[Rfam]
This 72-nucleotide RNA sequence belongs to the Rfam family "S15-Methanomicrobia ribosomal protein leader". By type it is a cis-regulatory leader. On this family, see Eckert and Weinberg, BMC Microbiol 2020: "Discovery of 20 novel ribosomal leader candidates in bacteria and archaea". Its Rfam clan is "Ribosomal Protein S15 Leader clan".

RNA sequence: AGCACUGUAUGUGCUGGCUAUGGUAAGUCCGACGUGCUCCCGGAAGCACUGCCCGCAAGGGCUCGGGAUUAC
Numbered sequence: 001a002g003c004a005c006u007g008u009a010u011g012u013g014c015u016g017g018c019u020a021u022g023g024u025a026a027g028u029c030c031g032a033c034g035u036g037c038u039c040c041c042g043g044a045a046g047c048a049c050u051g052c053c054c055g056c057a058a059g060g061g062c063u064c065g066g067g068a069u070u071a072c
Base pairs, nucleotide, nucleotide: 001015002014003013004012005011023072024071025070026069029067030066034049035048036047037046038045051062052061053060054059